[Rfam]
RNA sequence: ACACGAGGAAGGAGGUGGUCUGAAAUUGAAUGACAGACGGACACGUGAGGUGGCUGCCAGCUAGCCGCUACCGCUGACGGAAUUCACUGACCGCGCGAGCGGCGAGCGAAUCCCAGGCAGCUACCCGGCCCCCGAGCCCCCGGUCUGGUCCAGAUCGGACCCGGUGCACAAGCACCGGAAGGCUCGGGGGCCGUUGUGC
Numbered sequence: 001a002c003a004c005g006a007g008g009a010a011g012g013a014g015g016u017g018g019u020c021u022g023a024a025a026u027u028g029a030a031u032g033a034c035a036g037a038c039g040g041a042c043a044c045g046u047g048a049g050g051u052g053g054c055u056g057c058c059a060g061c062u063a064g065c066c067g068c069u070a071c072c073g074c075u076g077a078c079g080g081a082a083u084u085c086a087c088u089g090a091c092c093g094c095g096c097g098a099g100c101g102g103c104g105a106g107c108g109a110a111u112c113c114c115a116g117g118c119a120g121c122u123a124c125c126c127g128g129c130c131c132c133c134g135a136g137c138c139c140c141c142g143g144u145c146u147g148g149u150c151c152a153g154a155u156c157g158g159a160c161c162c163g164g165u166g167c168a169c170a171a172g173c174a175c176c177g178g179a180a181g182g183c184u185c186g187g188g189g190g191c192c193g194u195u196g197u198g199c
Base pairs, nucleotide, nucleotide: 014058015057016056017055018054019053060107061106062105064103065102067100068099069098072095073094074093126193127192128191129190130189131188132187133186134185135184136183137182138181140158141157142156143155144154145153
A member of the RNA family "Actinobacteria sRNA Ms_IGR-5" from Rhodococcus opacus, 199 nucleotides long. The source organism's lineage runs through Bacteria, Bacillati, Actinomycetes, Nocardiaceae and Rhodococcus opacus. It is one of the family's seed sequences. The base pairs follow the family's consensus structure. By type it is a small RNA.